A member of the RNA family "MIR1120/MIR1122 microRNA precursor family" from Triticum aestivum, 87 nucleotides long. The source organism's lineage runs through Eukaryota, Tracheophyta, Liliopsida, Pooideae and Triticum. On this family, see Yao et al., Genome Biol 2007: "Cloning and characterization of microRNAs from wheat (Triticum aestivum L.)".
RNA sequence: UUACUCCCUCCGUCCCAAAAUAUAAGAAUGUUUUUCACAUUAUACUAGUGUCAAAAAUGUUCUUAUAUUUUGGGACAGAGGGAGUAC
Numbered sequence: 001u002u003a004c005u006c007c008c009u010c011c012g013u014c015c016c017a018a019a020a021u022a023u024a025a026g027a028a029u030g031u032u033u034u035u036c037a038c039a040u041u042a043u044a045c046u047a048g049u050g051u052c053a054a055a056a057a058u059g060u061u062c063u064u065a066u067a068u069u070u071u072g073g074g075a076c077a078g079a080g081g082g083a084g085u086a087c
Base pairs, nucleotide, nucleotide: 003085004084005083007081008080009079010078013075014074015073016072017071019069020068021067022066023065024064025063026062027061028060029059030058031057032056033055034054035053037051038050039049040048041047
Dot-bracket structure: ..(((.((((..(((((.(((((((((((((((((.(((((.....))))).))))))))))))))))).)))))..)))).)))..